RNA sequence: UCGCAUCCGCCAAUCGGUCCAGCCGUGUCGCGGAAGGUUGUUUAACCAGUUCAAAGUUUCCUGCAGGGAAACGGAGGUCAGCG
Numbered sequence: 001u002c003g004c005a006u007c008c009g010c011c012a013a014u015c016g017g018u019c020c021a022g023c024c025g026u027g028u029c030g031c032g033g034a035a036g037g038u039u040g041u042u043u044a045a046c047c048a049g050u051u052c053a054a055a056g057u058u059u060c061c062u063g064c065a066g067g068g069a070a071a072c073g074g075a076g077g078u079c080a081g082c083g
Stems, first nucleotide, its partner, number of pairs: 002083003006034005015025004036047004049079001051077002056072007
A member of the RNA family "SucA RNA motif", 83 nucleotides long.
By type it is a cis-regulatory element.
The base pairs follow the family's consensus structure, which is taken from published work.
For this family Rfam cites "Identification of 22 candidate structured RNAs in bacteria using the CMfinder comparative genomics pipeline" (Weinberg et al., Nucleic Acids Res, 2007).